[Rfam]
RNA: Nitrogen stress-induced RNA 4
RNA sequence: AGAAUAAGUUAUAAGUACCCUCCGAUUGCUUCUCUAGACCGCCCCUAUAUAGUGGCGGUUU
Number, nucleotide and partner (000 for none) at each position: 001a009002g000003a000004a000005u000006a000007a000008g000009u001010u000011a000012u000013a000014a000015g000016u000017a000018c000019c000020c000021u000022c000023c000024g000025a000026u000027u000028g000029c000030u000031u000032c000033u000034c000035u000036a061037g060038a059039c058040c057041g056042c055043c054044c000045c000046u000047a000048u000049a000050u000051a000052g000053u000054g043055g042056c041057g040058g039059u038060u037061u036